[Rfam]
Annotation:
Rfam assigns this 325-nucleotide RNA sequence from Chinchilla lanigera to the family "Nuclear RNase P". Rfam's curators write: Ribonuclease P (RNase P) is a ubiquitous endoribonuclease, found in archaea, bacteria and eukarya as well as chloroplasts and mitochondria. By type it is a ribozyme. It scores 245 bits against the family's covariance model. On this family, see Frank and Pace, Annu Rev Biochem 1998: "Ribonuclease P: unity and diversity in a tRNA processing ribozyme".

RNA sequence: GGUGGAGGGAAGCUCAUCAGUGGGGCUACAAGCUGAGUGCGUCACGUCACUCUGUAGCGCGUCCCCUGGGAAGGUCUGAGACUAGGGCCAAAGGCGGCCCUAACAGGGCCCUCCCUGAGCGCGGGGAGGUGAGUUCCCAGAGAGCGGGUCUCCGUGCGAGGGCAGACCGGGCAGGAGAAGCCGAGCUCUCCCGCCGCGGGGAGGGCCUGGUGGAUGCCCCCUUAGCCGGAGCUUGGAACAGACUCACGGCCGGCGCGCUGAGUUCAAUGGCUGAGGUGAGGCACCCGGGGGCCUCAUAACCCAAUUCAGACUACUCUCCCCCGCC
Numbered sequence: 001g002g003u004g005g006a007g008g009g010a011a012g013c014u015c016a017u018c019a020g021u022g023g024g025g026c027u028a029c030a031a032g033c034u035g036a037g038u039g040c041g042u043c044a045c046g047u048c049a050c051u052c053u054g055u056a057g058c059g060c061g062u063c064c065c066c067u068g069g070g071a072a073g074g075u076c077u078g079a080g081a082c083u084a085g086g087g088c089c090a091a092a093g094g095c096g097g098c099c100c101u102a103a104c105a106g107g108g109c110c111c112u113c114c115c116u117g118a119g120c121g122c123g124g125g126g127a128g129g130u131g132a133g134u135u136c137c138c139a140g141a142g143a144g145c146g147g148g149u150c151u152c153c154g155u156g157c158g159a160g161g162g163c164a165g166a167c168c169g170g171g172c173a174g175g176a177g178a179a180g181c182c183g184a185g186c187u188c189u190c191c192c193g194c195c196g197c198g199g200g201g202a203g204g205g206c207c208u209g210g211u212g213g214a215u216g217c218c219c220c221c222u223u224a225g226c227c228g229g230a231g232c233u234u235g236g237a238a239c240a241g242a243c244u245c246a247c248g249g250c251c252g253g254c255g256c257g258c259u260g261a262g263u264u265c266a267a268u269g270g271c272u273g274a275g276g277u278g279a280g281g282c283a284c285c286c287g288g289g290g291g292c293c294u295c296a297u298a299a300c301c302c303a304a305u306u307c308a309g310a311c312u313a314c315u316c317u318c319c320c321c322c323g324c325c
Base pairs, nucleotide, nucleotide: 001325002324003323004322008319009318010317013275014274015273016272018270022066023065024064025063035052036051037050038049039048040046076309077308078307079306080305086251087250088249089248096110097109098108099107100106111128112127113126114125115124116123129247130246131245132244133243134242135241150231151230152229153228154227276297277296278295279294280293281292282291